[Rfam]
RNA sequence: GUUUAAGUUUUAUAGGGUUCCGCAAUACGGCAGUAUUGGCCUGGUCCAAGAUAAAACGCGCAGGUAACUGCGUUCACGGAAGGAUAAAAGCCUGGGAGAU
Numbered sequence: 001g002u003u004u005a006a007g008u009u010u011u012a013u014a015g016g017g018u019u020c021c022g023c024a025a026u027a028c029g030g031c032a033g034u035a036u037u038g039g040c041c042u043g044g045u046c047c048a049a050g051a052u053a054a055a056a057c058g059c060g061c062a063g064g065u066a067a068c069u070g071c072g073u074u075c076a077c078g079g080a081a082g083g084a085u086a087a088a089a090g091c092c093u094g095g096g097a098g099a100u
Stems, first nucleotide, its partner, number of pairs: 007057006015047002020044002022041001023038006058073006075095001077098001081093003
Rfam assigns this 100-nucleotide RNA from Anaerocolumna xylanovorans to the family "Guanidine-I riboswitch aptamer". The match comes from Rfam's covariance-model search (90 bits).